RNA sequence: UGCAGACAAGCGCGGACGAUUGUAGAGGUCGUCAGUAUGACGGCAGCCUCGACAGGUGGGCUCCUCGAGUCCGGGGUCUGCAACACU
Numbered sequence: 001u002g003c004a005g006a007c008a009a010g011c012g013c014g015g016a017c018g019a020u021u022g023u024a025g026a027g028g029u030c031g032u033c034a035g036u037a038u039g040a041c042g043g044c045a046g047c048c049u050c051g052a053c054a055g056g057u058g059g060g061c062u063c064c065u066c067g068a069g070u071c072c073g074g075g076g077u078c079u080g081c082a083a084c085a086c087u
Base pairs, nucleotide, nucleotide: 001082002081003080004079005078006077007076011074013073014072015071016070023068025066026065027064028044029043030042031041032040033039034038047056048055049054

A member of the RNA family "DUF3800-VII RNA" from Cupriavidus sp. HPC(L), 87 nucleotides long. Pairs were carried over by alignment from the consensus structure, which is taken from published work. The organism belongs to Cupriavidus, within Bacteria. The sequence is in the family's curated seed alignment.